This 61-nucleotide RNA sequence from Aquibium carbonis belongs to the Rfam family "Fluoride riboswitch aptamer (crcB RNA motif)". The base pairs follow the family's consensus structure, which is taken from published work.
[Rfam]
Nucleotides: 061
Base pairs, nucleotide, nucleotide: 010026011025012024013023016052017051018050019049020048021047033042034041035040
Number, partner (000 for none) and nucleotide at each position: 001000c002000g003000a004000a005000c006000c007000g008000a009000u010026g011025g012024g013023g014000a015000u016052g017051g018050g019049g020048u021047u022000c023013c024012c025011c026010c027000g028000a029000a030000a031000c032000c033042g034041c035040c036000u037000u038000c039000g040035g041034g042033c043000u044000g045000a046000u047021g048020a049019c050018u051017c052016c053000u054000g055000c056000c057000g058000a059000c060000c061000a